[Rfam]
RNA sequence: AUCGCCGUUCGGGCAAGAGCGCUGCCGAAAACCUGCGCGACGCGUAAUUUGUCGCUGUCCGCGACCACGGAUGUACUGGCGCGGAUCUGACGACAUUGAGGAGGUCGGGCACUGCCCGGCCUUUUUUGUU
Numbered sequence: 001a002u003c004g005c006c007g008u009u010c011g012g013g014c015a016a017g018a019g020c021g022c023u024g025c026c027g028a029a030a031a032c033c034u035g036c037g038c039g040a041c042g043c044g045u046a047a048u049u050u051g052u053c054g055c056u057g058u059c060c061g062c063g064a065c066c067a068c069g070g071a072u073g074u075a076c077u078g079g080c081g082c083g084g085a086u087c088u089g090a091c092g093a094c095a096u097u098g099a100g101g102a103g104g105u106c107g108g109g110c111a112c113u114g115c116c117c118g119g120c121c122u123u124u125u126u127u128g129u130u
Stems, first nucleotide, its partner, number of pairs: 003044003006039001013036003017032001049093006057086003062081002065079003095129002098126013
The record is a 130-nucleotide RNA from Aureimonas sp. AU20, which matches "Alphaproteobacterial sRNA ar35" in Rfam. A search with the family's covariance model found it, with a score of 53 bits. The pairing is the family consensus, mapped onto this sequence. By type it is a small RNA. A reference for the family is del Val et al. (2012), "A survey of sRNA families in alpha-proteobacteria", RNA Biol. NCBI's taxonomy places the organism under Bacteria, Pseudomonadati, Hyphomicrobiales, Aurantimonadaceae, Aureimonas.